Annotation: A member of the RNA family "CRISPR RNA direct repeat element" from Methanococcus maripaludis, 37 nucleotides long. Rfam links the family to the GO term defense response. Rfam's curators put it in the seed alignment. The source organism's lineage runs through Archaea, Methanobacteriati, Methanobacteriota, Methanococcales and Methanococcus maripaludis.
[Rfam]
RNA sequence: CUAAAAGAAUAACUUGCAAAAUAACAAGCAUUACAAU
Dot-bracket structure: ............((((........)))).........